[Rfam]
RNA sequence: AUUCUGUUUCAGGGCGAGGUGCGAUUCCUCACUGGCGGUGAUCCGGCUCGGCUCCGCGCCGAUGCCGCAAGUCCGCGACCCCGAAACGGCGCAUCCGGGCACCGCGCCCGACCGCGCUGCUUCGGGCUGAUUCCGGUGGGAUCCCGGAACCAACGGUAUAGUCCGGAUGGAAGAGGCAGACG
Numbered sequence: 001a002u003u004c005u006g007u008u009u010c011a012g013g014g015c016g017a018g019g020u021g022c023g024a025u026u027c028c029u030c031a032c033u034g035g036c037g038g039u040g041a042u043c044c045g046g047c048u049c050g051g052c053u054c055c056g057c058g059c060c061g062a063u064g065c066c067g068c069a070a071g072u073c074c075g076c077g078a079c080c081c082c083g084a085a086a087c088g089g090c091g092c093a094u095c096c097g098g099g100c101a102c103c104g105c106g107c108c109c110g111a112c113c114g115c116g117c118u119g120c121u122u123c124g125g126g127c128u129g130a131u132u133c134c135g136g137u138g139g140g141a142u143c144c145c146g147g148a149a150c151c152a153a154c155g156g157u158a159u160a161g162u163c164c165g166g167a168u169g170g171a172a173g174a175g176g177c178a179g180a181c182g
Stems, first nucleotide, its partner, number of pairs: 003180008017029003031162002033152002035076004071150002080126006132148005154165003
RNA: FMN riboswitch aptamer (RFN element)
Organism: Coriobacteriaceae bacterium CHKCI002